[Rfam]
RNA: Lysine riboswitch aptamer
Organism: Planomicrobium sp. YIM 101495
RNA sequence: AAGAUGGGUAGAGGCCGCGAGACGGAUCAGUACAUUGCAGGAGCACGACAGCGAGGAAUGCAAUGGAAAGGUCGAAUCGCCGAAGUCUGUUUUCUGUGUCAACAGGAACGGGCUGGGGGUAUUCUGAAGAAGGAUGCCACUGUCAUUUGUGCGAGACACAAAUGGAGAGCUACACAAUAG
Dot-bracket structure: .....(.((((.....((((..(((.......(((((((...................)))))))......)))..))))...((((((((((...........))))))))))((.((((((((.....)))))))).)).(((((((.........)))))))....)))).).....